RNA sequence: GGAUGUGAGGGCGAUCCGGCUGCGACAUCUGUCACCCCACUGAUCAGCAGGAUUGAUUUGGCUGAUCUUCCUGGUUAGGUGGGGUCCCCUUCCUCCCUCACUGCUCCAUGAGCAUCCCUCCUGAAGCUGCACACUUGUUCAAAGAGGACAACCUUCCCCAAUAGAACAUAAUAUUCAUUUGUCAAGAGUAUACGGUAGCUGUGCUCUCCUCCUCUAAACAAGCUCAGGCUCACUUUAUAGGAGAAUGUAGGGUAGUCAAGCUUCCAAGGCUGCAGACACAUCCAAGUGAGGCACUGCAUCAGGCAGUUUGCCAUUCUUU
Numbered sequence: 001g002g003a004u005g006u007g008a009g010g011g012c013g014a015u016c017c018g019g020c021u022g023c024g025a026c027a028u029c030u031g032u033c034a035c036c037c038c039a040c041u042g043a044u045c046a047g048c049a050g051g052a053u054u055g056a057u058u059u060g061g062c063u064g065a066u067c068u069u070c071c072u073g074g075u076u077a078g079g080u081g082g083g084g085u086c087c088c089c090u091u092c093c094u095c096c097c098u099c100a101c102u103g104c105u106c107c108a109u110g111a112g113c114a115u116c117c118c119u120c121c122u123g124a125a126g127c128u129g130c131a132c133a134c135u136u137g138u139u140c141a142a143a144g145a146g147g148a149c150a151a152c153c154u155u156c157c158c159c160a161a162u163a164g165a166a167c168a169u170a171a172u173a174u175u176c177a178u179u180u181g182u183c184a185a186g187a188g189u190a191u192a193c194g195g196u197a198g199c200u201g202u203g204c205u206c207u208c209c210u211c212c213u214c215u216a217a218a219c220a221a222g223c224u225c226a227g228g229c230u231c232a233c234u235u236u237a238u239a240g241g242a243g244a245a246u247g248u249a250g251g252g253u254a255g256u257c258a259a260g261c262u263u264c265c266a267a268g269g270c271u272g273c274a275g276a277c278a279c280a281u282c283c284a285a286g287u288g289a290g291g292c293a294c295u296g297c298a299u300c301a302g303g304c305a306g307u308u309u310g311c312c313a314u315u316c317u318u319u
Stems, first nucleotide, its partner, number of pairs: 001107003005101007013092002018089002024086003028083006035074002039068001042067004048060001119165002122137003126134001139161001146157003198261003204255002207252004212243004218238001220236003284319003288314001290312003293307005
7SK RNA: a 319-nucleotide RNA from Urocolius indicus.
About the family: 7SK was discovered as an abundant small nuclear RNA in the mid-70s but a possible function has only recently been suggested.
The base pairs follow the family's consensus structure, which is taken from published work.
The organism belongs to Urocolius, within Eukaryota.
The family is grouped with related families in Rfam's "7SK clan".